Rfam assigns this 157-nucleotide sequence from Triticum aestivum to the family "U1 spliceosomal RNA".
U1 is a small nuclear RNA (snRNA) component of the spliceosome (involved in pre-mRNA splicing). Its 5' end forms complementary base pairs with the 5' splice junction, thus defining the 5' donor site of an intron. There are significant differences in sequence and secondary structure between metazoan and yeast U1 snRNAs, the latter being much longer (568 nucleotides as compared to 164 nucleotides in human). Nevertheless, secondary structure predictions suggest that all U1 snRNAs share a 'common core' consisting of helices I, II, the proximal region of III, and IV. This family does not contain the larger yeast sequences.
Pairs were carried over by alignment from the consensus structure, which is taken from published work.
RNA sequence: AUACUUACCUGGACGGGGUUUAUGGGUGAUCAAAAAGGCUCAUGACCUAGAUUAAUGGCUCACAUUGCACAUAGUGACUGUGUUCAUCUACCAUCUUCCUUGGGAGAGUGGACGUCAAAAUUUAUGUAAGAGGGGGUACGCGUUCGCGCGGCCCCUG
Dot-bracket structure: ...........(((((((((..(((((..........))))).)))))(((.(.(((..((((..........))))...)))..)))).((((((.(....).))).))).))))...............(((((..((((....)))).))))).